A member of the RNA family "L31-Firmicutes ribosomal protein leader" from Planococcus lenghuensis, 31 nucleotides long.
RNA sequence: CUCUGUUCCGGAUGGAUCAGGGCAGGAGGAG
Number, nucleotide and partner (000 for none) at each position: 001c022002u021003c020004u019005g018006u000007u000008c015009c014010g000011g000012a000013u000014g009015g008016a000017u000018c005019a004020g003021g002022g001023c000024a000025g000026g000027a000028g000029g000030a000031g000

The family is grouped with related families in Rfam's "Ribosomal Protein L31 Leader clan". Lineage of the source: Bacteria > Bacillota > Bacilli > Caryophanaceae > Planococcus.